[Rfam]
RNA sequence: CACGAUAAGGGCAAACCCUGAGUGAUCAGGGGGCGCAAAGUAAUAGGGUCUUCUUCAUACAGGGAUGUAGUCUAAGAGAAGGCAAGAGUAUCCUUGUAGUAAGUCGUAAAAAGACAGCCUUACUGCCGAAG
Numbered sequence: 001c002a003c004g005a006u007a008a009g010g011g012c013a014a015a016c017c018c019u020g021a022g023u024g025a026u027c028a029g030g031g032g033g034c035g036c037a038a039a040g041u042a043a044u045a046g047g048g049u050c051u052u053c054u055u056c057a058u059a060c061a062g063g064g065a066u067g068u069a070g071u072c073u074a075a076g077a078g079a080a081g082g083c084a085a086g087a088g089u090a091u092c093c094u095u096g097u098a099g100u101a102a103g104u105c106g107u108a109a110a111a112a113g114a115c116a117g118c119c120u121u122a123c124u125g126c127c128g129a130a131g
Stems, first nucleotide, its partner, number of pairs: 001131001003128002011036002016031006034117001039124004045120003048115005
Description:
Rfam assigns this 131-nucleotide RNA sequence from Candidatus Brocadia fulgida to the family "c-di-GMP-I-GGC riboswitch aptamer". It scores 59 bits against the family's covariance model. The organism belongs to Candidatus Brocadia, within Bacteria.